[Rfam]
RNA sequence: AAGCAACACUCUGUAGUAAGCAUUUGGUUGCCUGCUGCAAUUUAAGCUUGCUAAAUCAGAAAAGUCUAACCUAUUCCAGGGAUCUCUGCUUUGUGAGGUCGCUUGUUAUAUAGACUUGUACAGC
Numbered sequence: 001a002a003g004c005a006a007c008a009c010u011c012u013g014u015a016g017u018a019a020g021c022a023u024u025u026g027g028u029u030g031c032c033u034g035c036u037g038c039a040a041u042u043u044a045a046g047c048u049u050g051c052u053a054a055a056u057c058a059g060a061a062a063a064g065u066c067u068a069a070c071c072u073a074u075u076c077c078a079g080g081g082a083u084c085u086c087u088g089c090u091u092u093g094u095g096a097g098g099u100c101g102c103u104u105g106u107u108a109u110a111u112a113g114a115c116u117u118g119u120a121c122a123g124c
Base pairs, nucleotide, nucleotide: 009046010045012039013038014037015036017034018033020031021030022029062117063116064115065114066113067112068111072110073109074108077105078104079103080102085098086097087096